[Rfam]
Background: A member of the RNA family "permuted transfer-messenger RNA" from Nordella sp. HKS 07, 212 nucleotides long. It scores 140 bits against the family's covariance model. The family's RNA type in Rfam is non-coding RNA gene. Pairs were carried over by alignment from the consensus structure, which is taken from published work.
RNA sequence: GGCGAUAAAUGGCCAUCGUAAUAAACCCAUCGGACCCGGGGGCGGUACCCGGCGCCUCCACCAGAGACCGCGACGGAUCGCGGCCUCUGAUGGGGGCGAAAUAGGAUCGACGAGGGCGUAAAGGGUGAGCUUUUGCUCGAGAUGGCUCCGACGUAACGGGCCACUUUAUAGUUGCCAAUGACAACUAUGCUCCGGCCGCUCUCGCUGCUUAA
Numbered sequence: 001g002g003c004g005a006u007a008a009a010u011g012g013c014c015a016u017c018g019u020a021a022u023a024a025a026c027c028c029a030u031c032g033g034a035c036c037c038g039g040g041g042g043c044g045g046u047a048c049c050c051g052g053c054g055c056c057u058c059c060a061c062c063a064g065a066g067a068c069c070g071c072g073a074c075g076g077a078u079c080g081c082g083g084c085c086u087c088u089g090a091u092g093g094g095g096g097c098g099a100a101a102u103a104g105g106a107u108c109g110a111c112g113a114g115g116g117c118g119u120a121a122a123g124g125g126u127g128a129g130c131u132u133u134u135g136c137u138c139g140a141g142a143u144g145g146c147u148c149c150g151a152c153g154u155a156a157c158g159g160g161c162c163a164c165u166u167u168a169u170a171g172u173u174g175c176c177a178a179u180g181a182c183a184a185c186u187a188u189g190c191u192c193c194g195g196c197c198g199c200u201c202u203c204g205c206u207g208c209u210u211a212a
Base pairs, nucleotide, nucleotide: 001137002136003135004134005133014127015126016125017124026116027115028114030113031112032111036052037051038050039049040048053098054097055096056095057094058093059092138153139152